[Rfam]
RNA sequence: GCACCAAAUCUUUCCCAUUCCUUCCCGUGCGGUGUGGGCCUGGGGACACAUGGUGCGCACAGCAACGCAGAGCAAAUCCAGGCAGGUGCUCCCCAUGAGAACCUGUCUCUACACCUCUGCUACAGCU
Numbered sequence: 001g002c003a004c005c006a007a008a009u010c011u012u013u014c015c016c017a018u019u020c021c022u023u024c025c026c027g028u029g030c031g032g033u034g035u036g037g038g039c040c041u042g043g044g045g046a047c048a049c050a051u052g053g054u055g056c057g058c059a060c061a062g063c064a065a066c067g068c069a070g071a072g073c074a075a076a077u078c079c080a081g082g083c084a085g086g087u088g089c090u091c092c093c094c095a096u097g098a099g100a101a102c103c104u105g106u107c108u109c110u111a112c113a114c115c116u117c118u119g120c121u122a123c124a125g126c127u
Stems, first nucleotide, its partner, number of pairs: 001056005012046006020038002067120006080108008089099003
Dot-bracket structure: (((((......((((((..((...............))..)))))).....)))))..........((((((.......((((((((.(((.....))).))))))))......)))))).......